[Rfam]
U12 minor spliceosomal RNA: a 143-nucleotide RNA from Suricata suricatta.
RNA sequence: AUGCCUUAAACUUAUGAGUAAGGAAACGAAUGAUUUGGGGUCAUGCCCGAAUCCUCACUGCUAAUGUAAGAUGAAUUUUUAAGAUGGUAAAGGUUUUCCCUAAGGCCUAUAUUGCAGGAUGCCUGGGAAUCACAAUUUGCCCG
Numbered sequence: 001a002u003g004c005c006u007u008a009a010a011c012u013u014a015u016g017a018g019u020a021a022g023g024a025a026a027c028g029a030a031u032g033a034u035u036u037g038g039g040g041u042c043a044u045g046c047c048c049g050a051a052u053c054c055u056c057a058c059u060g061c062u063a064a065u066g067u068a069a070g071a072u073g074a075a076u077u078u079u080u081a082a083g084a085u086g087g088u089a090a091a092g093g094u095u096u097u098c099c100c101u102a103a104g105g106c107c108u109a110u111a112u113u114g115c116a117g118g119a120u121g122c123c124u125g126g127g128a129a130u131c132a133c134a135a136u137u138u139g140c141c142c143g
Stems, first nucleotide, its partner, number of pairs: 004023005032053008054070002057067002086141003091138005097132001100127002103124004
About this RNA: The family is grouped with related families in Rfam's "U2 clan". It scores 88 bits against the family's covariance model.